[Rfam]
RNA sequence: GUGCGACCUCCGCCGAGUCCGGCGCGCCAGAGCGGCAGCCGGAGCCGGGGACCCACCGACCUUGGGGUGAAUCGACCCAACUCCCUUCCGGGGAAAGGGUCGUAGGGCAACCCUUCCGAACCACCCGCCCGAACCCGACAGCUAACUCGGUAGGCGGAACAUGGAAGGAGU
Numbered sequence: 001g002u003g004c005g006a007c008c009u010c011c012g013c014c015g016a017g018u019c020c021g022g023c024g025c026g027c028c029a030g031a032g033c034g035g036c037a038g039c040c041g042g043a044g045c046c047g048g049g050g051a052c053c054c055a056c057c058g059a060c061c062u063u064g065g066g067g068u069g070a071a072u073c074g075a076c077c078c079a080a081c082u083c084c085c086u087u088c089c090g091g092g093g094a095a096a097g098g099g100u101c102g103u104a105g106g107g108c109a110a111c112c113c114u115u116c117c118g119a120a121c122c123a124c125c126c127g128c129c130c131g132a133a134c135c136c137g138a139c140a141g142c143u144a145a146c147u148c149g150g151u152a153g154g155c156g157g158a159a160c161a162u163g164g165a166a167g168g169a170g171u
Stems, first nucleotide, its partner, number of pairs: 011156004018043006044151006054064002065136003073102006105130004
RNA: c-di-AMP riboswitch aptamer (ydaO/yuaA leader)
Organism: Streptomyces cellostaticus